[Rfam]
RNA sequence: CUUUAACCUAAACAUGGAAAUACUUUCUUUUAUUUUUAAAAUAGUAAGUGCUUCCAUGUUUUCGUAUAAG
Dot-bracket structure: (((..((..((((((((((.(((((.((..............)).))))).))))))))))..))..)))
RNA: mir-302 microRNA precursor family